[Rfam]
The family of this 231-nucleotide RNA sequence from Trifolium subterraneum is "MIR2655 microRNA precursor family". It scores 131 bits against the family's covariance model.
RNA sequence: CCCUUAUCUUUUAAAAGUUUUAAGUUGAUCCCUUAUCUUUAUUUUAGGUUUCAAGUUGGUCCCUUCCGUCAAAUAUUUUACUAUUACCGUUAAAUUUGGAGACGUGACACCCUUGGACAGCUGACAUGUGUCCAAAUUUAACGGUAAUAGUAAAAAAAUUGACAGAAUGGACCAACUUGAAAUCUAAAAUAAAGAUAAGGGAUCAACCUGAAACUUUUAAAAGAUAAGGGA
Numbered sequence: 001c002c003c004u005u006a007u008c009u010u011u012u013a014a015a016a017g018u019u020u021u022a023a024g025u026u027g028a029u030c031c032c033u034u035a036u037c038u039u040u041a042u043u044u045u046a047g048g049u050u051u052c053a054a055g056u057u058g059g060u061c062c063c064u065u066c067c068g069u070c071a072a073a074u075a076u077u078u079u080a081c082u083a084u085u086a087c088c089g090u091u092a093a094a095u096u097u098g099g100a101g102a103c104g105u106g107a108c109a110c111c112c113u114u115g116g117a118c119a120g121c122u123g124a125c126a127u128g129u130g131u132c133c134a135a136a137u138u139u140a141a142c143g144g145u146a147a148u149a150g151u152a153a154a155a156a157a158a159u160u161g162a163c164a165g166a167a168u169g170g171a172c173c174a175a176c177u178u179g180a181a182a183u184c185u186a187a188a189a190u191a192a193a194g195a196u197a198a199g200g201g202a203u204c205a206a207c208c209u210g211a212a213a214c215u216u217u218u219a220a221a222a223g224a225u226a227a228g229g230g231a
Stems, first nucleotide, its partner, number of pairs: 002229007024207002027204003031200013045186003